Description: Shown here is a 219-nucleotide RNA sequence from Coleofasciculus chthonoplastes, a member of the family "HNH endonuclease-associated RNA and ORF (HEARO) RNA". The literature on the family includes a 2009 paper in Nature by Weinberg et al., "Exceptional structured noncoding RNAs revealed by bacterial metagenome analysis". Pairs were carried over by alignment from the consensus structure, which is taken from published work.

RNA sequence: GUCAGGAACCCCACGGCUAUAAGCCGGGGCUUUGAAAAAGCCUAUACCUGACCAGUCCUAAGUGCUUAGCGCACUACGUUAACGGCAAGAGUUAAAAGUCCUACCUACGGAUGCGUGCCAGUCUGUAGCUCUAGAACCAAGUGGUUAAACAGGUCUAAGGGGUUAAGCCAGUGCUACUUGGAAAGUACCGACCGUUAACAUUGGCGAGGCAAACAUCAC
Dot-bracket structure: ((((((.(.(((...((.....)).).))(((.....)))....).))))))..(.((.((((((.....)))))..((((((.......(((.....((....((((((((...[[[[.)))))))).....)).(((((((((...((.((.((((....)).)))).)))))))))))........))).)))))).).)))..]]]]........
Numbered sequence: 001g002u003c004a005g006g007a008a009c010c011c012c013a014c015g016g017c018u019a020u021a022a023g024c025c026g027g028g029g030c031u032u033u034g035a036a037a038a039a040g041c042c043u044a045u046a047c048c049u050g051a052c053c054a055g056u057c058c059u060a061a062g063u064g065c066u067u068a069g070c071g072c073a074c075u076a077c078g079u080u081a082a083c084g085g086c087a088a089g090a091g092u093u094a095a096a097a098g099u100c101c102u103a104c105c106u107a108c109g110g111a112u113g114c115g116u117g118c119c120a121g122u123c124u125g126u127a128g129c130u131c132u133a134g135a136a137c138c139a140a141g142u143g144g145u146u147a148a149a150c151a152g153g154u155c156u157a158a159g160g161g162g163u164u165a166a167g168c169c170a171g172u173g174c175u176a177c178u179u180g181g182a183a184a185g186u187a188c189c190g191a192c193c194g195u196u197a198a199c200a201u202u203g204g205c206g207a208g209g210c211a212a213a214c215a216u217c218a219c
Stems, first nucleotide, its partner, number of pairs: 001052006008045001010029002012026001016024002030040003055205001057204002060201001061075005078199006091192003099135002105128008116211004137181009149172002152169002155167002157164002
Overview: The source organism's lineage runs through Bacteria, Bacillati, Coleofasciculales, Coleofasciculus and Coleofasciculus chthonoplastes. The sequence is in the family's curated seed alignment. It is annotated as a non-coding RNA gene.